[Rfam]
RNA sequence: AGAAGUAGUAUGCCGCAGCGUAUCCUCGACGGGCUUUGCUGCGGAUAAUUCUUUACUAAAGUACUAGGAGUGAAUAGUGGCCCGUAUAGCAGGCAUUAACAUUCCUGAU
Numbered sequence: 001a002g003a004a005g006u007a008g009u010a011u012g013c014c015g016c017a018g019c020g021u022a023u024c025c026u027c028g029a030c031g032g033g034c035u036u037u038g039c040u041g042c043g044g045a046u047a048a049u050u051c052u053u054u055a056c057u058a059a060a061g062u063a064c065u066a067g068g069a070g071u072g073a074a075u076a077g078u079g080g081c082c083c084g085u086a087u088a089g090c091a092g093g094c095a096u097u098a099a100c101a102u103u104c105c106u107g108a109u
Base pairs, nucleotide, nucleotide: 004052005051007049009047010046011045013043024093025092026091030084031083032082033081039107
Rfam assigns this 109-nucleotide RNA from Vibrio gelatinilyticus to the family "Alpha operon ribosome binding site". The match comes from Rfam's covariance-model search (88 bits). A reference for the family is Schlax et al. (2001), "Translational repression of the Escherichia coli alpha operon mRNA: importance of an mRNA conformational switch and a ternary entrapment complex", J Biol Chem. Its family is annotated with ribosome binding in the Gene Ontology. The bacterial alpha operon ribosome binding site is surrounded by this complex pseudoknotted structure. Translation of the mRNA produces 4 ribosomal protein products, one of which (S4) acts as a translational repressor by binding to the nested pseudoknot region. The mechanism of repression is thought to involve a conformational switch in the pseudoknot region and ribosome entrapment.